The family of this 68-nucleotide sequence from Gouania willdenowi is "Mammalian CPEB3 ribozyme". A search with the family's covariance model found it, with a score of 36 bits. The base pairs follow the family's consensus structure, which is taken from published work. The literature on the family includes a 2006 paper in Science by Salehi-Ashtiani et al., "A genomewide search for ribozymes reveals an HDV-like sequence in the human CPEB3 gene".
RNA sequence: AGAGGCAAGGGGAUCAAGGUAGAAGCGUUAACAUCGCAAUCCCUUGUAAAGUACUUGCAAAUUCUACC
Numbered sequence: 001a002g003a004g005g006c007a008a009g010g011g012g013a014u015c016a017a018g019g020u021a022g023a024a025g026c027g028u029u030a031a032c033a034u035c036g037c038a039a040u041c042c043c044u045u046g047u048a049a050a051g052u053a054c055u056u057g058c059a060a061a062u063u064c065u066a067c068c
Base pairs, nucleotide, nucleotide: 010043011042012041013040014039018068019067020066021065022064023063024062025037026036027035049056050055